[Rfam]
RNA sequence: UUAAAUGACCAAUGUUGCCCUCGUAUAUGUCCGAUAAUAUGGUUCGGAUGUUUCUACCAAGUUGCCAUUAACAACUUGACUAUGAAGGUGAAUGCAGUCAUG
Numbered sequence: 001u002u003a004a005a006u007g008a009c010c011a012a013u014g015u016u017g018c019c020c021u022c023g024u025a026u027a028u029g030u031c032c033g034a035u036a037a038u039a040u041g042g043u044u045c046g047g048a049u050g051u052u053u054c055u056a057c058c059a060a061g062u063u064g065c066c067a068u069u070a071a072c073a074a075c076u077u078g079a080c081u082a083u084g085a086a087g088g089u090g091a092a093u094g095c096a097g098u099c100a101u102g
Stems, first nucleotide, its partner, number of pairs: 018088002021085005029049006058078007

Notes:
The family of this 102-nucleotide RNA sequence from Psychrobacillus psychrotolerans is "Purine riboswitch aptamer". Gene Ontology term of the family: purine nucleobase biosynthetic process. Riboswitches are metabolite binding domains within certain messenger RNAs that serve as precision sensors for their corresponding targets.